[Rfam]
This 89-nucleotide sequence from Photorhabdus laumondii belongs to the Rfam family "CyaR/Rye RNA". About the family: This sRNA was originally identified in a large scale screen of E. coli. Lineage of the source: Bacteria > Pseudomonadota > Morganellaceae > Photorhabdus laumondii > Photorhabdus laumondii subsp. laumondii. For this family Rfam cites "Identification of novel small RNAs using comparative genomics and microarrays" (Wassarman et al., Genes Dev, 2001). It is annotated as a small RNA. The match comes from Rfam's covariance-model search (89 bits).

RNA sequence: UGGUGAAAAAUAAAAAAUUAAAAAAGUUUUACAGUAAGACUAGGAACCACCUCCUUGGCCGGCUCAAUCUCCCUUGAGCUGGCCUUUUC
Numbered sequence: 001u002g003g004u005g006a007a008a009a010a011u012a013a014a015a016a017a018u019u020a021a022a023a024a025a026g027u028u029u030u031a032c033a034g035u036a037a038g039a040c041u042a043g044g045a046a047c048c049a050c051c052u053c054c055u056u057g058g059c060c061g062g063c064u065c066a067a068u069c070u071c072c073c074u075u076g077a078g079c080u081g082g083c084c085u086u087u088u089c
Stems, first nucleotide, its partner, number of pairs: 042055004057084011